The record is a 250-nucleotide sequence from Thamnidium elegans, which matches "Group I catalytic intron" in Rfam. Rfam's curators write: Group I catalytic introns are large self-splicing ribozymes. They catalyse their own excision from mRNA, tRNA and rRNA precursors in a wide range of organisms. The core secondary structure consists of 9 paired regions (P1-P9). These fold to essentially two domains - the P4-P6 domain (formed from the stacking of P5, P4, P6 and P6a helices) and the P3-P9 domain (formed from the P8, P3, P7 and P9 helices). The secondary structure mark-up for this family represents only this conserved core. Group I catalytic introns often have long ORFs inserted in loop regions. The window size for this search is chosen to minimise search time and catch the small examples. A larger window size will find more matches. A search with the family's covariance model found it, with a score of 108 bits.

[Rfam]
RNA sequence: AUUCUUGGGUAAAAUGUGUGCCCCCCUUGAUCGUGAGAUCAUGUGGAAACAUCGGGUGAAUUGCAAGAACCUCCAAUAAUUAUAUUGGACAAUUUGCAGCGAAGCGUAUAUCAGUGUUUAAUAGAUAUACGAACGUUCAACGACUAACCAGUGAGCUACACUAGCAAUAAUCUGGACACGAGUGCCCGACAACAUCAAUAUUAGUUUAUUGAUGUUGAUGACAUAGUCUGAACAAUCUGGUAACAGAUUG
Number, nucleotide and partner (000 for none) at each position: 001a000002u000003u000004c000005u000006u000007g023008g022009g021010u020011a019012a000013a017014a000015u000016g000017u013018g000019u011020g010021c009022c008023c007024c000025c000026c000027u000028u000029g040030a039031u038032c000033g000034u000035g000036a000037g000038a031039u030040c029041a000042u000043g000044u000045g000046g000047a000048a000049a000050c000051a000052u189053c188054g187055g186056g000057u184058g183059a000060a000061u000062u098063g097064c096065a095066a094067g093068a000069a000070c000071c000072u089073c088074c087075a086076a085077u000078a000079a000080u000081u000082a000083u000084a000085u076086u075087g074088g073089a072090c000091a000092a000093u067094u066095u065096g064097c063098a062099g136100c135101g000102a000103a000104g000105c000106g000107u125108a000109u123110a122111u121112c000113a000114g000115u000116g000117u000118u000119u000120a000121a111122u110123a109124g000125a107126u000127a000128u000129a000130c000131g000132a000133a000134c000135g100136u099137u000138c000139a000140a229141c000142g228143a227144c226145u225146a224147a000148c000149c000150a000151g000152u000153g000154a000155g000156c000157u000158a000159c000160a000161c000162u000163a000164g000165c000166a000167a000168u000169a000170a000171u000172c000173u000174g000175g000176a000177c000178a000179c000180g000181a000182g000183u058184g057185c000186c055187c054188g053189a052190c000191a000192a215193c214194a213195u212196c211197a210198a209199u208200a207201u000202u000203a000204g000205u000206u000207u200208a199209u198210u197211g196212a195213u194214g193215u192216u000217g000218a000219u000220g000221a000222c000223a000224u146225a145226g144227u143228c142229u140230g000231a000232a000233c000234a000235a248236u247237c246238u245239g244240g000241u000242a000243a000244c239245a238246g237247a236248u235249u000250g000